[Rfam]
RNA sequence: AUACGUUUAAUGAUGAAAUAUUCUGGAUGUAAAUUACGUCUGAAGCGCAAAAAAAAAAAAAAAGAAUGCUGAUAUUUCCAUGUUGCCUUCCUUCUGAUUAUUU
Numbered sequence: 001a002u003a004c005g006u007u008u009a010a011u012g013a014u015g016a017a018a019u020a021u022u023c024u025g026g027a028u029g030u031a032a033a034u035u036a037c038g039u040c041u042g043a044a045g046c047g048c049a050a051a052a053a054a055a056a057a058a059a060a061a062a063a064g065a066a067u068g069c070u071g072a073u074a075u076u077u078c079c080a081u082g083u084u085g086c087c088u089u090c091c092u093u094c095u096g097a098u099u100a101u102u103u
Base pairs, nucleotide, nucleotide: 005102024080025079026078027077
Dot-bracket structure: ....(..................((((.................................................)))).....................).

Description:
Shown here is a 103-nucleotide RNA sequence from Cetraspora pellucida, a member of the family "Small nucleolar RNA Z13/snr52". It scores 59 bits against the family's covariance model. Rfam links the family to the GO terms RNA processing and nucleolus. The family's RNA type in Rfam is C/D-box small nucleolar RNA.